[Rfam]
RNA sequence: GUAUUUUGAGGUGGUAAAUUUCGUGGAAACCACACACCAGUAAAAGCUGGUCAAAAGAGAUGUAGGAGAACGCCACGCCUACCAUAAUAC
Dot-bracket structure: (((((.((..(((((.......[[[[..))))).(((((((....)))))).....)....(((((......]]]].))))))).)))))
Numbered sequence: 001g002u003a004u005u006u007u008g009a010g011g012u013g014g015u016a017a018a019u020u021u022c023g024u025g026g027a028a029a030c031c032a033c034a035c036a037c038c039a040g041u042a043a044a045a046g047c048u049g050g051u052c053a054a055a056a057g058a059g060a061u062g063u064a065g066g067a068g069a070a071c072g073c074c075a076c077g078c079c080u081a082c083c084a085u086a087a088u089a090c
Stems, first nucleotide, its partner, number of pairs: 001090005007084002011033005023076004035057001036051006062082005